[Rfam]
RNA: mir-71 microRNA precursor family
RNA sequence: CGCAGGUGAAAGACAUGGGUAGUGAGACGCUUUGCGGGUUCGGCAUUCCGUCGGCAUAUUCCGCUCGCCCUUUGAUGGUCGUGUCACUAUUCUGUUUUUCGCCCGCUC
Numbered sequence: 001c002g003c004a005g006g007u008g009a010a011a012g013a014c015a016u017g018g019g020u021a022g023u024g025a026g027a028c029g030c031u032u033u034g035c036g037g038g039u040u041c042g043g044c045a046u047u048c049c050g051u052c053g054g055c056a057u058a059u060u061c062c063g064c065u066c067g068c069c070c071u072u073u074g075a076u077g078g079u080c081g082u083g084u085c086a087c088u089a090u091u092c093u094g095u096u097u098u099u100c101g102c103c104c105g106c107u108c
Base pairs, nucleotide, nucleotide: 008100009099010098011097012096013095014094015093017092018091019090021088022087023086024085025084027082028081029080